[Rfam]
RNA sequence: CCAUCCAUUCCGUUGGAUGAAGCCAAUAUCCCCGGCUUUGCCAGUAAUGGCAUUGUUCGGAAGCGGAUAUAAAUGGAACCCUAUUUGGAGCAAAUCCCGUGAGGGAGAAGCAAAACUGCCAGCUACAAGGCGGUUAGGGUG
Numbered sequence: 001c002c003a004u005c006c007a008u009u010c011c012g013u014u015g016g017a018u019g020a021a022g023c024c025a026a027u028a029u030c031c032c033c034g035g036c037u038u039u040g041c042c043a044g045u046a047a048u049g050g051c052a053u054u055g056u057u058c059g060g061a062a063g064c065g066g067a068u069a070u071a072a073a074u075g076g077a078a079c080c081c082u083a084u085u086u087g088g089a090g091c092a093a094a095u096c097c098c099g100u101g102a103g104g105g106a107g108a109a110g111c112a113a114a115a116c117u118g119c120c121a122g123c124u125a126c127a128a129g130g131c132g133g134u135u136a137g138g139g140u141g
Base pairs, nucleotide, nucleotide: 002019003018004017005016006015007014027069028068029067030066031065032060033059034058035056036055039052040051041050042049043048081088082087090111091110097104098103115134116133117132118131119130120129
The record is a 141-nucleotide RNA sequence from Roseburia hominis, which matches "Group II catalytic intron D1-D4-7" in Rfam. On this family, see Bonen and Vogel, Trends Genet 2001: "The ins and outs of group II introns". Rfam's curators write: Group II introns are found in rRNA, tRNA and mRNA of organelles in fungi, plants and protists, and also in mRNA in bacteria.